A member of the RNA family "c-di-AMP riboswitch aptamer (ydaO/yuaA leader)" from a Streptosporangiales bacterium, 139 nucleotides long. The match comes from Rfam's covariance-model search (84 bits).
RNA sequence: UCGGCUGGCCCGCCGAGUCCUGCCACGCAGGAGCCGGGGACCAUCACUUGGGGUGAAUCCGCCACGCGAUGUCGCGGCGGUAGGGCGGACUCCGGCCCGAACCCGUCAGCUAACCCGGUAGGCGGUUCGAGGAGAGGAG
Numbered sequence: 001u002c003g004g005c006u007g008g009c010c011c012g013c014c015g016a017g018u019c020c021u022g023c024c025a026c027g028c029a030g031g032a033g034c035c036g037g038g039g040a041c042c043a044u045c046a047c048u049u050g051g052g053g054u055g056a057a058u059c060c061g062c063c064a065c066g067c068g069a070u071g072u073c074g075c076g077g078c079g080g081u082a083g084g085g086c087g088g089a090c091u092c093c094g095g096c097c098c099g100a101a102c103c104c105g106u107c108a109g110c111u112a113a114c115c116c117g118g119u120a121g122g123c124g125g126u127u128c129g130a131g132g133a134g135a136g137g138a139g
Stems, first nucleotide, its partner, number of pairs: 011124004018032003033119006042050002051104003059080004083098004